This 183-nucleotide RNA belongs to the Rfam family "malK-I RNA". By type it is a cis-regulatory element. It is one of the family's seed sequences.

Nucleotides: 183
Base pairs, nucleotide, nucleotide: 007040010037013034014033015032016031017030018029066080067079068078069077072170073169074168075167076166081105082104083103084102085101086100087099088098090097091096108136109135110134113133114132115131116130117129118128139164140163141162142161143160144159145158146157151155
Number, partner (000 for none) and nucleotide at each position: 001000u002000u003000c004000a005000a006000u007040g008000g009000g010037g011000u012000u013034c014033g015032c016031c017030u018029a019000c020000u021000c022000c023000a024000c025000u026000c027000a028000a029018u030017a031016g032015g033014c034013g035000u036000u037010c038000a039000a040007c041000c042000a043000u044000u045000u046000a047000a048000a049000a050000a051000a052000g053000g054000a055000g056000g057000u058000u059000u060000a061000c062000c063000u064000a065000u066080c067079c068078g069077c070000g071000a072170g073169g074168c075167c076166c077069g078068c079067g080066g081105u082104g083103c084102g085101g086100c087099a088098g089000u090097g091096u092000g093000g094000a095000g096091a097090c098088c099087u100086g101085u102084c103083g104082c105081a106000a107000g108136g109135c110134g111000g112000u113133u114132c115131g116130c117129u118128g119000a120000g121000a122000u123000u124000g125000a126000c127000a128118c129117a130116g131115c132114g133113a134110c135109g136108c137000g138000a139164g140163g141162g142161c143160a144159c145158g146157g147000c148000a149000a150000a151155g152000g153000a154000c155151c156000g157146u158145c159144g160143u161142g162141c163140u164139c165000a166076g167075g168074g169073c170072c171000g172000g173000a174000c175000a176000c177000a178000a179000u180000g181000g182000c183000a